[Rfam]
Nucleotides: 076
Stems, first nucleotide, its partner, number of pairs: 001075005007069002011065001013064012026051006034043003
Number, partner (000 for none) and nucleotide at each position: 001075g002074g003073c004072c005071c006000u007069a008068a009000a010000c011065u012000c013064g014063a015062a016061g017060u018059a019058g020057a021056g022055u023054a024053g025000u026051u027050u028049a029048g030047u031046a032000g033000g034043g035042u036041c037000a038000g039000c040000u041036g042035a043034u044000a045000c046031u047030a048029c049028u050027a051026a052000u053024c054023u055022a056021c057020u058019c059018u060017a061016c062015u063014u064013c065011a066000a067000a068008u069007u070000u071005g072004g073003g074002c075001c076000c

This 76-nucleotide sequence from Haemonchus placei belongs to the Rfam family "mir-5928 microRNA precursor family". Rfam links the family to the GO terms miRNA-mediated post-transcriptional gene silencing and RISC complex. The organism belongs to Haemonchus, within Eukaryota. It scores 77 bits against the family's covariance model.